[Rfam]
RNA sequence: GGAGGCGUUCCCAGGCUGGUGCCUGGCGCGGUCUUCAACACCGUUGUGGCCCGGGACCCGGGUCAGGCGGGUUCGAUUCCCGUCCGCCUCC
Numbered sequence: 001g002g003a004g005g006c007g008u009u010c011c012c013a014g015g016c017u018g019g020u021g022c023c024u025g026g027c028g029c030g031g032u033c034u035u036c037a038a039c040a041c042c043g044u045u046g047u048g049g050c051c052c053g054g055g056a057c058c059c060g061g062g063u064c065a066g067g068c069g070g071g072u073u074c075g076a077u078u079c080c081c082g083u084c085c086g087c088c089u090c091c
Stems, first nucleotide, its partner, number of pairs: 001091007011026006028044005047065005068082004